[Rfam]
RNA sequence: GGGGCUGGCCGCAAGGAUCGGGUCCUACCACGGCGAGGAAAUACCUC
Numbered sequence: 001g002g003g004g005c006u007g008g009c010c011g012c013a014a015g016g017a018u019c020g021g022g023u024c025c026u027a028c029c030a031c032g033g034c035g036a037g038g039a040a041a042u043a044c045c046u047c
Base pairs, nucleotide, nucleotide: 001026002025003024004023005022006021007018009016010015
Shown here is a 47-nucleotide sequence, a member of the family "DUF3800-XI RNA". Actinobacteria, Firmicutes, Proteobacteria, Spirochaetes (1 example). The base pairs follow the family's consensus structure, which is taken from published work. Rfam classes the family as a small RNA. Rfam's curators put it in the seed alignment.